[Rfam]
RNA: Small nucleolar RNA sR45
RNA sequence: AGCCAUGAUGAGGCCGAGGACACCCGACGAAAGGAUGAGGAAUCUUCGCUUCGCUGAGG
Numbered sequence: 001a002g003c004c005a006u007g008a009u010g011a012g013g014c015c016g017a018g019g020a021c022a023c024c025c026g027a028c029g030a031a032a033g034g035a036u037g038a039g040g041a042a043u044c045u046u047c048g049c050u051u052c053g054c055u056g057a058g059g
Stems, first nucleotide, its partner, number of pairs: 006056002010052005016047005021037002
Dot-bracket structure: .....((..(((((.(((((((.............)).....))))))))))..))...